abiF RNA: a 37-nucleotide RNA sequence from Finegoldia magna. The organism belongs to Finegoldia magna, within Bacteria.
RNA sequence: CCCGACACGCCUCUUAACAAUGCGCACCAAGUCGGGU
Dot-bracket structure: ((((((.(((...........)))......)))))).
Rfam describes the family as follows. Actinobacteria, Bacteroidetes, Clostridia, Proteobacteria, one Clostridia phage. By type it is a small RNA. The base pairs follow the family's consensus structure, which is taken from published work.